[Rfam]
A member of the RNA family "mir-880 microRNA precursor family" from Peromyscus maniculatus, 78 nucleotides long. The organism belongs to Peromyscus maniculatus, within Eukaryota.
RNA sequence: UGCACUGCAAUACUCAGAUCAGUAUGAGUCACUUUGUAUUACAUGUUACUCCAUCUGCUCUGAGUAGAGUAAGGCUCA
Numbered sequence: 001u002g003c004a005c006u007g008c009a010a011u012a013c014u015c016a017g018a019u020c021a022g023u024a025u026g027a028g029u030c031a032c033u034u035u036g037u038a039u040u041a042c043a044u045g046u047u048a049c050u051c052c053a054u055c056u057g058c059u060c061u062g063a064g065u066a067g068a069g070u071a072a073g074g075c076u077c078a
Stems, first nucleotide, its partner, number of pairs: 002075002006071003011066008020057003026051004031046002
Dot-bracket structure: .((..(((..((((((((.(((...((((.((............)).))))...))).))))))))..)))..))...

Background: Pairs were carried over by alignment from the consensus structure, which was predicted with RNAalifold.